Background:
Shown here is a 77-nucleotide sequence from Alligator mississippiensis, a member of the family "Mammalian CPEB3 ribozyme". Gene Ontology term of the family: RNA nuclease activity.
Nucleotides: 077
Base pairs, nucleotide, nucleotide: 013045015044016043017042018041021077022076023075024074025073026072027071029039030038049066050065051064052063053062054061
Number, partner (000 for none) and nucleotide at each position: 001000g002000g003000u004000u005000g006000c007000a008000a009000g010000u011000u012000c013045g014000a015044g016043g017042c018041c019000a020000u021077a022076g023075c024074a025073g026072a027071a028000g029039c030038a031000c032000u033000c034000a035000c036000a037000g038030u039029g040000a041018g042017g043016u044015c045013c046000u047000g048000u049066c050065a051064g052063a053062u054061u055000c056000c057000a058000a059000c060000a061054a062053a063052u064051c065050u066049g067000c068000a069000a070000a071027u072026u073025c074024u075023g076022c077021u